[Rfam]
RNA sequence: GGUUGCAAAUGUGAGGCCAUAGCAAAAGCACUCAUAUCAUGGUCCUGCCAGAUUCCAAUGAACCUGUGAAUUCUGCU
Numbered sequence: 001g002g003u004u005g006c007a008a009a010u011g012u013g014a015g016g017c018c019a020u021a022g023c024a025a026a027a028g029c030a031c032u033c034a035u036a037u038c039a040u041g042g043u044c045c046u047g048c049c050a051g052a053u054u055c056c057a058a059u060g061a062a063c064c065u066g067u068g069a070a071u072u073c074u075g076c077u
Stems, first nucleotide, its partner, number of pairs: 013045001015044004021077004026072002028040001049066003053062003